Record summary:
mir-1902 microRNA precursor family: a 79-nucleotide sequence from Suricata suricatta. Gene Ontology terms of the family: miRNA-mediated post-transcriptional gene silencing and RISC complex. The organism belongs to Suricata, within Eukaryota. Rfam 15.1 lists 1,188 matches to the family in 123 species. The base pairs follow the family's consensus structure, which was predicted with RNAalifold.
RNA sequence: GUUUGUUUUGGGAGUGUUUGUUGUAUAAUUUGAUUUGAUGAAAUGUUUAGAGGUGCAGUAGGCAUGACUUUGAGCGGAU
Numbered sequence: 001g002u003u004u005g006u007u008u009u010g011g012g013a014g015u016g017u018u019u020g021u022u023g024u025a026u027a028a029u030u031u032g033a034u035u036u037g038a039u040g041a042a043a044u045g046u047u048u049a050g051a052g053g054u055g056c057a058g059u060a061g062g063c064a065u066g067a068c069u070u071u072g073a074g075c076g077g078a079u
Stems, first nucleotide, its partner, number of pairs: 001079008010070003014065013030049001032047003